Shown here is a 356-nucleotide sequence, a member of the family "transfer-messenger RNA".
RNA sequence: GGGGGCGCACCGGUUUCGACGGGAUUGAAUCGUUGUGGGAAGGCGUGCCGGGUUCCGAGCUCCCGUAAAACGAUCGGAAAACAACAACUGCCAACAACACGCAGUUUGCAUACGCUGCCUAAUUAAUUAGGUAGCCGCUGCGGUCUCUGGCUCCUGUCUGGAGGCCUGUCGGCGUCUUAAUGCAGGAUGGGCCUAACGCUUCGGUCCGGAGCGGACAGCCGAGAUCAAUCGGGCUAAGCCGACCGGCUCUUGCCGGUUCCUCACCGGUCGGACGAAAACCACCGAAUCGGACACGCACGUAGUCUUUUCAUGGCGGACUUUCUCGGACGCGGGUUCAAUUCCCGCCGCCUCCACCA
Number, nucleotide and partner (000 for none) at each position: 001g352002g351003g350004g349005g348006c347007g346008c000009a000010c000011c000012g000013g000014u000015u000016u000017c000018g000019a000020c325021g324022g323023g322024a321025u000026u000027g318028a000029a000030u000031c315032g314033u313034u312035g311036u310037g000038g309039g308040a307041a306042g305043g304044c299045g298046u297047g296048c295049c065050g064051g063052g062053u000054u000055c000056c076057g075058a074059g000060c072061u000062c052063c051064c050065g049066u000067a000068a000069a000070a000071c000072g060073a000074u058075c057076g056077g000078a000079a000080a000081a000082c000083a000084a000085c000086a000087a000088c000089u000090g000091c000092c000093a000094a000095c000096a000097a000098c000099a000100c000101g000102c000103a000104g000105u000106u000107u000108g000109c000110a000111u000112a000113c000114g135115c134116u133117g132118c131119c130120u129121a128122a127123u000124u000125a000126a000127u122128u121129a120130g119131g118132u117133a116134g115135c114136c174137g173138c172139u171140g170141c000142g166143g165144u164145c000146u162147c161148u160149g159150g000151c000152u187153c186154c185155u184156g183157u182158c000159u149160g148161g147162a146163g000164g144165c143166c142167u000168g000169u000170c140171g139172g138173c137174g136175u000176c000177u000178u000179a000180a000181u000182g157183c156184a155185g154186g153187a152188u000189g000190g220191g219192c218193c000194u000195a000196a000197c000198g000199c000200u000201u000202c000203g235204g234205u233206c232207c231208g000209g000210a000211g000212c000213g000214g000215a000216c000217a000218g192219c191220c190221g000222a000223g000224a000225u000226c000227a000228a000229u000230c000231g207232g206233g205234c204235u203236a000237a000238g000239c271240c270241g269242a268243c000244c000245g000246g000247c000248u000249c000250u000251u000252g000253c290254c289255g000256g000257u286258u285259c284260c000261u000262c000263a000264c000265c000266g000267g000268u242269c241270g240271g239272a000273c000274g000275a000276a000277a000278a000279c000280c000281a000282c000283c000284g259285a258286a257287u000288c000289g254290g253291a000292c000293a000294c000295g048296c047297a046298c045299g044300u000301a000302g000303u000304c043305u042306u041307u040308u039309c038310a036311u035312g034313g033314c032315g031316g000317a000318c027319u000320u000321u024322c023323u022324c021325g020326g000327a000328c000329g345330c344331g343332g342333g341334u000335u000336c000337a000338a000339u000340u000341c333342c332343c331344g330345c329346c007347g006348c005349c004350u003351c002352c001353a000354c000355c000356a000
About this RNA:
A reference for the family is Williams (2002), "The tmRNA Website: invasion by an intron", Nucleic Acids Res.